[Rfam]
RNA sequence: AGUGCUGUUGGAGGAUGAAGCUUCUGAGUGAUCCAUCAGCAGAGCACAGCAUUGCCAUGCUGACACUCAUGCUGCUGACAAUGCACU
Numbered sequence: 001a002g003u004g005c006u007g008u009u010g011g012a013g014g015a016u017g018a019a020g021c022u023u024c025u026g027a028g029u030g031a032u033c034c035a036u037c038a039g040c041a042g043a044g045c046a047c048a049g050c051a052u053u054g055c056c057a058u059g060c061u062g063a064c065a066c067u068c069a070u071g072c073u074g075c076u077g078a079c080a081a082u083g084c085a086c087u
Stems, first nucleotide, its partner, number of pairs: 002086004007082003010076002013034004018029001036063005044055003
This 87-nucleotide RNA from Oreotrochilus melanogaster belongs to the Rfam family "Small nucleolar RNA SNORD71".
Rfam links the family to the GO terms RNA processing and nucleolus.
On this family, see Huttenhofer et al., EMBO J 2001: "RNomics: an experimental approach that identifies 201 candidates for novel, small, non-messenger RNAs in mouse".
Pairs were carried over by alignment from the consensus structure, which was predicted with RNAalifold.
By type it is an H/ACA-box small nucleolar RNA.
Rfam's curators write: snoRNA HBII-239 belongs to the family of C/D snoRNAs.It is the human orthologue of the mouse MBII-239 described and is predicted to guide 2'O-ribose methylation of 5.8S rRNA on residue U14.
Taxonomically the source falls in Oreotrochilus (Eukaryota, Craniata, Amniota, Sauria).